[Rfam]
RNA sequence: ACAAAGGCUCUUUUCAGAGCCACUAAAGCCACUGUAAAGAGCAUU
Numbered sequence: 001a002c003a004a005a006g007g008c009u010c011u012u013u014u015c016a017g018a019g020c021c022a023c024u025a026a027a028g029c030c031a032c033u034g035u036a037a038a039g040a041g042c043a044u045u
Stems, first nucleotide, its partner, number of pairs: 006021006
This 45-nucleotide sequence from Sphaeramia orbicularis belongs to the Rfam family "Histone 3' UTR stem-loop".
The base pairs follow the family's consensus structure, which is taken from published work.
The literature on the family includes a 1995 paper in Nucleic Acids Res by Williams and Marzluff, "The sequence of the stem and flanking sequences at the 3' end of histone mRNA are critical determinants for the binding of the stem-loop binding protein".